RNA sequence: UGUCCUGAAGGCAGGCAAUUGAUGACCCAGACAAGGACUAAUCAAGAUUGUCGAUCUAGUCCCUGCCUGGGUCACCAAUUGUCGGCCCCCGCGGGCA
Dot-bracket structure: (((((((..(((.((((((((.((((((((.((.(((((.(((.........)))..))))).)).)))))))).)))))))).)))..)).)))))
RNA: mir-789 microRNA precursor family